[Rfam]
RNA sequence: UACAUAUAAAGGCAAACCUGUUGAAAGACAGGGACGCAAAGCCAUGGGUCUAAGGUCCGAAGGAUGACUAUGACAGCCGGUUGCCGCA
Numbered sequence: 001u002a003c004a005u006a007u008a009a010a011g012g013c014a015a016a017c018c019u020g021u022u023g024a025a026a027g028a029c030a031g032g033g034a035c036g037c038a039a040a041g042c043c044a045u046g047g048g049u050c051u052a053a054g055g056u057c058c059g060a061a062g063g064a065u066g067a068c069u070a071u072g073a074c075a076g077c078c079g080g081u082u083g084c085c086g087c088a
Base pairs, nucleotide, nucleotide: 012037013036017032018031019030020029021028022027040082041081042080043079046078047077048074049073050072055068056067057066

Shown here is an 88-nucleotide sequence from Blautia luti, a member of the family "c-di-GMP-I riboswitch aptamer".
GEMM was predicted in a large-scale screen for bacterial structured RNA regulatory elements.
A search with the family's covariance model found it, with a score of 82 bits.
The base pairs follow the family's consensus structure, which is taken from published work.
The source organism's lineage runs through Bacteria, Bacillati, Clostridia, Lachnospiraceae and Blautia.